[Rfam]
RNA sequence: AGUCGCUGGCGGGCCGUCUCUCCUGAUAGGGGGGAUGUUGCUAAUUCCUGCGACUGUGUUAGUGUCCGGGAAAACCCCGCCUUCGGGCGGGGUUUUUGCUUUUUU
Numbered sequence: 001a002g003u004c005g006c007u008g009g010c011g012g013g014c015c016g017u018c019u020c021u022c023c024u025g026a027u028a029g030g031g032g033g034g035a036u037g038u039u040g041c042u043a044a045u046u047c048c049u050g051c052g053a054c055u056g057u058g059u060u061a062g063u064g065u066c067c068g069g070g071a072a073a074a075c076c077c078c079g080c081c082u083u084c085g086g087g088c089g090g091g092g093u094u095u096u097u098g099c100u101u102u103u104u105u
Stems, first nucleotide, its partner, number of pairs: 002054005019034006070097012
RNA: Pseudomonas rnk leader